[Rfam]
The family of this 81-nucleotide sequence from Dyella choica is "SAH (S-adenosyl-L-homocysteine) riboswitch aptamer". A reference for the family is Wang et al. (2008), "Riboswitches that sense S-adenosylhomocysteine and activate genes involved in coenzyme recycling", Mol Cell. The match comes from Rfam's covariance-model search (56 bits).
RNA sequence: UUCGCCGAGGGGCGCUGCGACCGUGGGCAAGUCUACGGCCAGGCUCGGUGGAUGCCUCGAAUGCAACGGCGCUCAUGACGC
Numbered sequence: 001u002u003c004g005c006c007g008a009g010g011g012g013c014g015c016u017g018c019g020a021c022c023g024u025g026g027g028c029a030a031g032u033c034u035a036c037g038g039c040c041a042g043g044c045u046c047g048g049u050g051g052a053u054g055c056c057u058c059g060a061a062u063g064c065a066a067c068g069g070c071g072c073u074c075a076u077g078a079c080g081c
Stems, first nucleotide, its partner, number of pairs: 002051007021038006